[Rfam]
L31-Firmicutes ribosomal protein leader: a 35-nucleotide RNA sequence. Its Rfam clan is "Ribosomal Protein L31 Leader clan".

RNA sequence: CUCUGGACCCGCACUGCGGUUCAGGGCGGAAAGAG
Number, nucleotide and partner (000 for none) at each position: 001c026002u025003c024004u023005g022006g021007a020008c019009c018010c000011g000012c000013a000014c000015u000016g000017c000018g009019g008020u007021u006022c005023a004024g003025g002026g001027c000028g000029g000030a000031a000032a000033g000034a000035g000